The family of this 117-nucleotide RNA sequence from Actinidia chinensis is "Small nucleolar RNA snoR104". It is annotated as an H/ACA-box small nucleolar RNA. Gene Ontology terms of the family: nucleolus and RNA processing. Pairs were carried over by alignment from the consensus structure, which was predicted with WAR.
[Rfam]
RNA sequence: GGGGAGCAUCCAUAAGCCGAAAUGUUAUCUGAUACAAUCUUCCUACAGAAAACCUCUAUAAUUUCCUGCUUGUGGAACUUAGUAUGUUCUGCAAGUCUCAAAUUACAAGAUACAUGA
Numbered sequence: 001g002g003g004g005a006g007c008a009u010c011c012a013u014a015a016g017c018c019g020a021a022a023u024g025u026u027a028u029c030u031g032a033u034a035c036a037a038u039c040u041u042c043c044u045a046c047a048g049a050a051a052a053c054c055u056c057u058a059u060a061a062u063u064u065c066c067u068g069c070u071u072g073u074g075g076a077a078c079u080u081a082g083u084a085u086g087u088u089c090u091g092c093a094a095g096u097c098u099c100a101a102a103u104u105a106c107a108a109g110a111u112a113c114a115u116g117a
Stems, first nucleotide, its partner, number of pairs: 001030003005026005055110003068096008077087002